[Rfam]
RNA sequence: CCGUCCCGCCUCGUGAUCGUCUUCUCACCCUUCACGCGGCGGGCGGAGUGAGGGACCGGCCCCGCGAGGACGUAACUCGCGGGGCCGGUCC
Numbered sequence: 001c002c003g004u005c006c007c008g009c010c011u012c013g014u015g016a017u018c019g020u021c022u023u024c025u026c027a028c029c030c031u032u033c034a035c036g037c038g039g040c041g042g043g044c045g046g047a048g049u050g051a052g053g054g055a056c057c058g059g060c061c062c063c064g065c066g067a068g069g070a071c072g073u074a075a076c077u078c079g080c081g082g083g084g085c086c087g088g089u090c091c
Stems, first nucleotide, its partner, number of pairs: 001046003005043006013035004019029001053091016